[Rfam]
Annotation: Rfam assigns this 275-nucleotide sequence from Aureobasidium pullulans to the family "Fungal signal recognition particle RNA". Rfam 15.1 lists 748 matches to the family in 741 species. The base pairs follow the family's consensus structure, which is taken from published work. A reference for the family is Batey et al. (2000), "Crystal structure of the ribonucleoprotein core of the signal recognition particle", Science. Gene Ontology terms of the family: signal recognition particle, plasma membrane targeting, SRP-dependent cotranslational protein targeting to membrane, signal sequence recognition and signal recognition particle, endoplasmic reticulum targeting.
RNA sequence: AGCUGUAAUGGCUCAACGGAAGAAAUGUCCCCAAUCUUUCCGCCCACCCCUGCUGUUGGCAACAACCCAACCAUCGGUGCCCGGUUCGAAUCCCGUGGUGGCCACCCACUCGUGUAGGUAACUCAUGAUUGCUGCGCGUGGCCUUGAGACUGCUUGGAUACCGCUUCAGCCGAGCAAUCGGGCAGAGCGACCGAGCCCAUGGGAUGGCGAGUCCGGACUACAUUGAUGUUGUUGGUGGGGUGUUUGGGAGGAGUUAUGAGGAUGUGACUUUCUUU
Numbered sequence: 001a002g003c004u005g006u007a008a009u010g011g012c013u014c015a016a017c018g019g020a021a022g023a024a025a026u027g028u029c030c031c032c033a034a035u036c037u038u039u040c041c042g043c044c045c046a047c048c049c050c051u052g053c054u055g056u057u058g059g060c061a062a063c064a065a066c067c068c069a070a071c072c073a074u075c076g077g078u079g080c081c082c083g084g085u086u087c088g089a090a091u092c093c094c095g096u097g098g099u100g101g102c103c104a105c106c107c108a109c110u111c112g113u114g115u116a117g118g119u120a121a122c123u124c125a126u127g128a129u130u131g132c133u134g135c136g137c138g139u140g141g142c143c144u145u146g147a148g149a150c151u152g153c154u155u156g157g158a159u160a161c162c163g164c165u166u167c168a169g170c171c172g173a174g175c176a177a178u179c180g181g182g183c184a185g186a187g188c189g190a191c192c193g194a195g196c197c198c199a200u201g202g203g204a205u206g207g208c209g210a211g212u213c214c215g216g217a218c219u220a221c222a223u224u225g226a227u228g229u230u231g232u233u234g235g236u237g238g239g240g241u242g243u244u245u246g247g248g249a250g251g252a253g254u255u256a257u258g259a260g261g262a263u264g265u266g267a268c269u270u271u272c273u274u275u
Stems, first nucleotide, its partner, number of pairs: 001013003018272005025265006032258002034255001036253001037248003042243002045240001047238002054064004068231003072228008081216004086210003090205009100143001102141004107136001109134001110128005116123002144148001152196006162189005171180003